[Rfam]
RNA sequence: AGGUCGUAGCAGGCUUUUUGCUGUUUGUCUUGCUAGUUGCUUCCUAAAGGAGAACGAUGUCUAAGGAUCAAGCGAUCG
Numbered sequence: 001a002g003g004u005c006g007u008a009g010c011a012g013g014c015u016u017u018u019u020g021c022u023g024u025u026u027g028u029c030u031u032g033c034u035a036g037u038u039g040c041u042u043c044c045u046a047a048a049g050g051a052g053a054a055c056g057a058u059g060u061c062u063a064a065g066g067a068u069c070a071a072g073c074g075a076u077c078g
Stems, first nucleotide, its partner, number of pairs: 002077005009033004038070002041067003045063001